Record summary: This 311-nucleotide RNA sequence from Methanocorpusculum labreanum belongs to the Rfam family "Archaeal RNase P". NCBI's taxonomy places the organism under Archaea, Methanobacteriota, Methanomicrobia, Methanocorpusculaceae, Methanocorpusculum labreanum. Its Rfam clan is "RNaseP clan". Ribonuclease P (RNase P) is a ubiquitous endoribonuclease, found in archaea, bacteria and eukarya as well as chloroplasts and mitochondria. Its best characterised activity is the generation of mature 5'-ends of tRNAs by cleaving the 5'-leader elements of precursor-tRNAs. A reference for the family is Frank and Pace (1998), "Ribonuclease P: unity and diversity in a tRNA processing ribozyme", Annu Rev Biochem.
Nucleotides: 311
Stems, first nucleotide, its partner, number of pairs: 001311003006306004011300001013280005021043008048298003052295005057211004063243005070207005075090005091104005105202002110198001112196001126186002129181004135175002147160002215263004224254005
Number, partner (000 for none) and nucleotide at each position: 001311g002310a003309g004000a005000g006306g007305g008304a009303g010000c011300a012000c013280a014279c015278g016277g017276c018000u019000g020000a021043c022042g023041g024040u025039g026038g027037u028036c029000a030000a031000u032000u033000c034000g035000a036028g037027a038026c039025c040024g041023c042022u043021g044000a045000g046000g047000a048298a049297a050296g051000u052295c053294c054293u055292c056291c057211c058210a059209c060208c061000g062000c063243u064242c065241a066240g067239g068000u069000a070207c071206a072205c073204a074203g075090c076089c077088g078087u079086a080000u081000g082000c083000a084000a085000a086079u087078a088077c089076g090075g091104g092103u093102g094101g095100c096000g097000a098000g099000a100095g101094u102093c103092a104091c105202a106201g107000c108000u109000c110198u111000g112196g113000a114000a115000c116000a117000g118000a119000a120000a121000c122000g123000a124000c125000a126186c127185g128000u129181c130180c131179u132178c133000u134000u135175c136174u137000g138000a139000g140000c141000a142000a143000u144000g145000a146000a147160g148159c149000a150000g151000c152000a153000g154000u155000u156000g157000a158000a159148g160147c161000u162000g163000u164000u165000g166000a167000g168000c169000g170000u171000c172000g173000a174136g175135g176000c177000u178132g179131a180130g181129g182000g183000a184000c185127c186126g187000a188000u189000g190000g191000a192000a193000c194000g195000g196112c197000g198110a199000a200000u201106c202105u203074c204073u205072g206071u207070g208060g209059g210058u211057g212000c213000a214000a215263g216262u217261u218260g219000g220000a221000a222000c223000a224254g225253g226252g227251u228250c229000g230000c231000u232000a233000c234000g235000g236000g237000u238000g239067c240066c241065u242064g243063a244000c245000c246000c247000a248000a249000u250228g251227a252226u253225c254224c255000g256000g257000g258000u259000a260218c261217a262216a263215c264000g265000c266000u267000a268000a269000g270000c271000c272000g273000a274000a275000u276017g277016c278015c279014g280013u281000a282000a283000a284000a285000a286000c287000a288000g289000g290000a291056g292055g293054a294053g295052g296050c297049u298048u299000a300011u301000u302000a303009c304008u305007c306006c307000g308000a309003c310002u311001c